[Rfam]
RNA sequence: ACCCCGCACAUAUCCGGGUUUGAUAUGUACCUCCCUGUUGGACUUGCCCGGACCUUUGGUCCGGGUUUUUUU
Numbered sequence: 001a002c003c004c005c006g007c008a009c010a011u012a013u014c015c016g017g018g019u020u021u022g023a024u025a026u027g028u029a030c031c032u033c034c035c036u037g038u039u040g041g042a043c044u045u046g047c048c049c050g051g052a053c054c055u056u057u058g059g060u061c062c063g064g065g066u067u068u069u070u071u072u
Stems, first nucleotide, its partner, number of pairs: 008028007046066008

Singlet oxygen resistance RNA X: a 72-nucleotide RNA from Pseudooceanicola spongiae. About the family: SorX (RSs2461)like SorY is a singlet oxygen induced sRNA that counteracts oxidative stress by targeting mRNA for a transporter in Rhodobacter. The family has 8 seed sequences and 528 matches in Rfam 15.1. It is annotated as a small RNA.